[Rfam]
The family of this 69-nucleotide sequence from Darwinula stevensoni is "DUF805 RNA". The family is grouped with related families in Rfam's "DUF805 clan".
RNA sequence: UAUAAGUGGAAUCCAGAGACCACACUAAAAAACGGGGUAGAUCCGAAAAACCAUACGAGUAGGAAAAUU
Number, nucleotide and partner (000 for none) at each position: 001u000002a000003u000004a000005a000006g023007u022008g021009g020010a000011a000012u000013c000014c000015a000016g000017a000018g000019a000020c009021c008022a007023c006024a000025c000026u000027a000028a000029a000030a000031a000032a000033c000034g000035g000036g052037g051038u050039a000040g000041a000042u000043c063044c062045g000046a000047a000048a000049a000050a038051c037052c036053a000054u000055a000056c000057g000058a000059g000060u000061a000062g044063g043064a000065a000066a000067a000068u000069u000